[Rfam]
This 70-nucleotide RNA sequence from Cricetulus griseus belongs to the Rfam family "Small nucleolar RNA SNORD82". Taxonomically the source falls in Cricetulus (Eukaryota, Opisthokonta, Gnathostomata, Eutheria). Rfam classes the family as a C/D-box small nucleolar RNA. snoRNA U82 or Z25 is found in both humans and mice. Rfam 15.1 lists 649 matches to the family in 590 species.

RNA sequence: AGCACAAGUGAUGAAUGACAAAGGGACUUAAUACUGAAACCUGGUGUUGAGAUUCAGUGUGCUGAUGUGC
Number, nucleotide and partner (000 for none) at each position: 001a000002g070003c069004a068005c067006a066007a000008g000009u000010g000011a000012u000013g000014a000015a000016u000017g000018a000019c000020a000021a000022a000023g000024g000025g000026a000027c000028u000029u000030a000031a000032u000033a000034c000035u000036g000037a000038a000039a000040c000041c000042u000043g000044g000045u000046g000047u000048u000049g000050a000051g000052a000053u000054u000055c000056a000057g000058u000059g000060u000061g000062c000063u000064g000065a000066u006067g005068u004069g003070c002